A member of the RNA family "Bacterial large subunit ribosomal RNA" from Croceimicrobium hydrocarbonivorans, 434 nucleotides of a longer RNA. Gene Ontology terms of the family: ribosome and structural constituent of ribosome. The match comes from Rfam's covariance-model search (2828 bits).

[Rfam]
RNA sequence: CUCCCCGAAAUGCAUUUAGGUGCAGCCUCAAGUUUAGUUUAGUAGAGGUAGAGCGACUGGUUGGAUGCGGGGGCUUCACCGCCUACCAAAUCCUGUCAAACUCCGAAUGCUACUAAAUAUACUUGGGAGUGAGGGCAUGGGUGCUAAGGUCCUUGUCCGAGAGGGAAACAACCCAGACUAUCUGCUAAGGCCCCCAAAUGUAUGCUAAGUUGAUCAAACGUGGUCUGAUUGCUUUGACAGCUAGGAUGUUGGCUUGGAAGCAGCCAUUCAUUUAAAGAGUGCGUAACAGCUCACUAGUCGAGCGAUCGGGCGUGGAUAAUAAUCGGGCAUUAAGCAUACUGCCGAAGCAAUAGCAUCGAAAGAUGGGUAGGGGAGCAUUCUAGUUGCGUCGAAGGUGAACUGUAAGGUUUGCUGGAGCGGCUAGAAAAGAAAAU
Numbered sequence: 001c002u003c004c005c006c007g008a009a010a011u012g013c014a015u016u017u018a019g020g021u022g023c024a025g026c027c028u029c030a031a032g033u034u035u036a037g038u039u040u041a042g043u044a045g046a047g048g049u050a051g052a053g054c055g056a057c058u059g060g061u062u063g064g065a066u067g068c069g070g071g072g073g074c075u076u077c078a079c080c081g082c083c084u085a086c087c088a089a090a091u092c093c094u095g096u097c098a099a100a101c102u103c104c105g106a107a108u109g110c111u112a113c114u115a116a117a118u119a120u121a122c123u124u125g126g127g128a129g130u131g132a133g134g135g136c137a138u139g140g141g142u143g144c145u146a147a148g149g150u151c152c153u154u155g156u157c158c159g160a161g162a163g164g165g166a167a168a169c170a171a172c173c174c175a176g177a178c179u180a181u182c183u184g185c186u187a188a189g190g191c192c193c194c195c196a197a198a199u200g201u202a203u204g205c206u207a208a209g210u211u212g213a214u215c216a217a218a219c220g221u222g223g224u225c226u227g228a229u230u231g232c233u234u235u236g237a238c239a240g241c242u243a244g245g246a247u248g249u250u251g252g253c254u255u256g257g258a259a260g261c262a263g264c265c266a267u268u269c270a271u272u273u274a275a276a277g278a279g280u281g282c283g284u285a286a287c288a289g290c291u292c293a294c295u296a297g298u299c300g301a302g303c304g305a306u307c308g309g310g311c312g313u314g315g316a317u318a319a320u321a322a323u324c325g326g327g328c329a330u331u332a333a334g335c336a337u338a339c340u341g342c343c344g345a346a347g348c349a350a351u352a353g354c355a356u357c358g359a360a361a362g363a364u365g366g367g368u369a370g371g372g373g374a375g376c377a378u379u380c381u382a383g384u385u386g387c388g389u390c391g392a393a394g395g396u397g398a399a400c401u402g403u404a405a406g407g408u409u410u411g412c413u414g415g416a417g418c419g420g421c422u423a424g425a426a427a428a429g430a431a432a433a434u
Stems, first nucleotide, its partner, number of pairs: 001375006011024005026129001027127007036120001037118009051104001052102002058098003063093003069087002071084004133158005139152004163174003178353004183349003189343003198340001200339006219314003223311010240298005246271003251265003272276001277292001281290002354365004376429001378426010394413008